[Rfam]
RNA sequence: GGUCAUGAGCGCCAGCCGCUCGUCCGACGUCCGUCGGUCGCGCACAGCCCCGGCUUGCUGGCCGGCAACCCUCCUCCUGCGGCGGGGUGCCCCGGGUGACGACCAGGCCCACGCCGCGGCGGCGUCGGGCAAGCGCGGGGG
Numbered sequence: 001g002g003u004c005a006u007g008a009g010c011g012c013c014a015g016c017c018g019c020u021c022g023u024c025c026g027a028c029g030u031c032c033g034u035c036g037g038u039c040g041c042g043c044a045c046a047g048c049c050c051c052g053g054c055u056u057g058c059u060g061g062c063c064g065g066c067a068a069c070c071c072u073c074c075u076c077c078u079g080c081g082g083c084g085g086g087g088u089g090c091c092c093c094g095g096g097u098g099a100c101g102a103c104c105a106g107g108c109c110c111a112c113g114c115c116g117c118g119g120c121g122g123c124g125u126c127g128g129g130c131a132a133g134c135g136c137g138g139g140g141g
Base pairs, nucleotide, nucleotide: 001104002103003102004101009063011062012061013060014059015058016057022054023053024052064091065090066089069087070086071085073082074081107130108129109128110127111125112124113123114122115121116120
Rfam assigns this 141-nucleotide RNA from Luteimicrobium xylanilyticum to the family "SAM (S-adenosyl methionine) riboswitch aptamer". About the family: SAM-IV is a mRNA element that regulates gene expression via direct sensing of S-adenosylmethionine (SAM or AdoMet). SAM-IV riboswitches share conserved nucleotide positions with the previously described SAM-I riboswitches sequence analysis and molecular recognition experiments suggest that SAM-I and SAM-IV riboswitches share similar ligand binding sites, but have different scaffolds. The source organism's lineage runs through Bacteria, Bacillati, Actinomycetes, Micrococcales and Luteimicrobium. The family is grouped with related families in Rfam's "SAM clan".